[Rfam]
A member of the RNA family "small nucleolar RNA snoR137" from Tetracentron sinense, 151 nucleotides long. Gene Ontology terms of the family: nucleolus and RNA processing. The organism belongs to Tetracentron, within Eukaryota.

RNA sequence: GUUGCUUCUUACUGGUGAACUCUCUCUAUUACUUCAAUGGGGGAUGUUCAUGUUUCAGAAGCAUAGAUUAAUGAGAAGAUCUCUUACCAGUAUUAAACAACACGGUGUGUUCUAUCUUGUUUCACUGUGUUACCUGUCUCCUGGUAUAUUC
Number, nucleotide and partner (000 for none) at each position: 001g000002u000003u063004g062005c061006u060007u059008c058009u000010u000011a000012c000013u000014g000015g000016u050017g049018a048019a047020c046021u044022c043023u042024c041025u040026c000027u000028a000029u000030u000031a000032c000033u000034u000035c000036a000037a000038u000039g000040g025041g024042g023043g022044a021045u000046g020047u019048u018049c017050a016051u000052g000053u000054u000055u000056c000057a000058g008059a007060a006061g005062c004063a003064u000065a000066g000067a000068u000069u000070a000071a000072u000073g000074a000075g000076a000077a000078g000079a000080u000081c000082u000083c000084u000085u000086a145087c144088c143089a142090g141091u000092a139093u000094u000095a000096a000097a000098c000099a131100a130101c129102a000103c127104g126105g125106u124107g123108u000109g000110u000111u000112c000113u000114a000115u000116c000117u000118u000119g000120u000121u000122u000123c107124a106125c105126u104127g103128u000129g101130u100131u099132a000133c000134c000135u000136g000137u000138c000139u092140c000141c090142u089143g088144g087145u086146a000147u000148a000149u000150u000151c000